The record is a 208-nucleotide RNA sequence from Clostridium botulinum, which matches "Group II catalytic intron D1-D4-5" in Rfam. Group II introns are found in rRNA, tRNA and mRNA of organelles in fungi, plants and protists, and also in mRNA in bacteria. The source organism's lineage runs through Bacteria, Bacillota, Clostridium, Clostridium botulinum and Clostridium botulinum B.

[Rfam]
RNA sequence: GAGAACUAAUAUUCCAAGAUGUCGAAUGAAAGGGUAACGCCUUGAAAGGCACUACUAAUACUCCGAUAUGUGUCAUGUAUAUAAGAAACAUGAGAUAUAAAGCUCGGUGAAGACAGUUGAGAGUACACCGUAAGUAGAUGAAAAACCAUUCCUACCCGAAAUGCGAACCAGAGGUGGUCGAGUGUAUGAUAGACUGGGUAUCUAUAAA
Numbered sequence: 001g002a003g004a005a006c007u008a009a010u011a012u013u014c015c016a017a018g019a020u021g022u023c024g025a026a027u028g029a030a031a032g033g034g035u036a037a038c039g040c041c042u043u044g045a046a047a048g049g050c051a052c053u054a055c056u057a058a059u060a061c062u063c064c065g066a067u068a069u070g071u072g073u074c075a076u077g078u079a080u081a082u083a084a085g086a087a088a089c090a091u092g093a094g095a096u097a098u099a100a101a102g103c104u105c106g107g108u109g110a111a112g113a114c115a116g117u118u119g120a121g122a123g124u125a126c127a128c129c130g131u132a133a134g135u136a137g138a139u140g141a142a143a144a145a146c147c148a149u150u151c152c153u154a155c156c157c158g159a160a161a162u163g164c165g166a167a168c169c170a171g172a173g174g175u176g177g178u179c180g181a182g183u184g185u186a187u188g189a190u191a192g193a194c195u196g197g198g199u200a201u202c203u204a205u206a207a208a
Stems, first nucleotide, its partner, number of pairs: 018052001020051004031043004053200004063107004067099005073093005114196005123187006129158002136153002162181001164180002167178004